[Rfam]
Nucleotides: 087
Base pairs, nucleotide, nucleotide: 001019002018003017004016005015006014007013021044022043023042024041026038027037028036047084048083049082050081051080052079053078054077055076056075057074058073059072061070062069063068
Number, partner (000 for none) and nucleotide at each position: 001019a002018c003017g004016c005015c006014g007013c008000c009000u010000c011000g012000u013007g014006c015005g016004g017003c018002g019001u020000g021044c022043g023042u024041g025000c026038u027037c028036c029000g030000c031000u032000c033000a034000a035000c036028g037027g038026g039000g040000c041024c042023a043022u044021g045000g046000a047084a048083c049082g050081g051080g052079g053078g054077u055076g056075g057074u058073g059072c060000c061070g062069u063068g064000u065000c066000g067000g068063c069062g070061c071000a072059g073058c074057a075056c076055c077054a078053c079052c080051c081050c082049c083048g084047u085000g086000c087000c